[Rfam]
RNA: M-box riboswitch aptamer (ykoK leader)
Organism: Tsukamurella paurometabola
RNA sequence: GGCGCCAAUCGUUCGCUGAGGCUCCUUCGCGGAAACAGGCCAGCGACCCCGAACGUCGAGAGACGCCCCGGGUCAGGACAGGUGCAUCCGGCUUAAGGGUGCGCCCCGAUUGGCUCCCGCACUGCGCGUGCGGGUUCACGCCGCGAAGUGCUGAAGGUCUGACGUGGAGGGGCGUG
Numbered sequence: 001g002g003c004g005c006c007a008a009u010c011g012u013u014c015g016c017u018g019a020g021g022c023u024c025c026u027u028c029g030c031g032g033a034a035a036c037a038g039g040c041c042a043g044c045g046a047c048c049c050c051g052a053a054c055g056u057c058g059a060g061a062g063a064c065g066c067c068c069c070g071g072g073u074c075a076g077g078a079c080a081g082g083u084g085c086a087u088c089c090g091g092c093u094u095a096a097g098g099g100u101g102c103g104c105c106c107c108g109a110u111u112g113g114c115u116c117c118c119g120c121a122c123u124g125c126g127c128g129u130g131c132g133g134g135u136u137c138a139c140g141c142c143g144c145g146a147a148g149u150g151c152u153g154a155a156g157g158u159c160u161g162a163c164g165u166g167g168a169g170g171g172g173c174g175u176g
Base pairs, nucleotide, nucleotide: 005172006171009168010167011163012162013096015158016157017156020152021151022150025148026147027146028145029144030143031142032141039114040113041112042111043110045074046073047072048071049070054065055064056063057062081105082104083103084102087099088098089097116134117133118132119131120130121129